[Rfam]
Actinobacteria sRNA Ms_IGR-7: a 119-nucleotide sequence from Mycolicibacterium fallax.
RNA sequence: CGGAAGUGCCUUUCUUGGGCUGUUCAGAUUGUGGUGUGGUAACUCCAAUCAUCGCAGCUCAGAGGGCACUUUCCCUAUUGCGACACCCGGUCACCCGGUCAAUUCUUCGGUGGAUCGAG
Numbered sequence: 001c002g003g004a005a006g007u008g009c010c011u012u013u014c015u016u017g018g019g020c021u022g023u024u025c026a027g028a029u030u031g032u033g034g035u036g037u038g039g040u041a042a043c044u045c046c047a048a049u050c051a052u053c054g055c056a057g058c059u060c061a062g063a064g065g066g067c068a069c070u071u072u073c074c075c076u077a078u079u080g081c082g083a084c085a086c087c088c089g090g091u092c093a094c095c096c097g098g099u100c101a102a103u104u105c106u107u108c109g110g111u112g113g114a115u116c117g118a119g
Stems, first nucleotide, its partner, number of pairs: 002073012016061003020057004027050003031046001033044003100117001102115004
The base pairs follow the family's consensus structure. Rfam 15.1 lists 463 matches to the family in 194 species.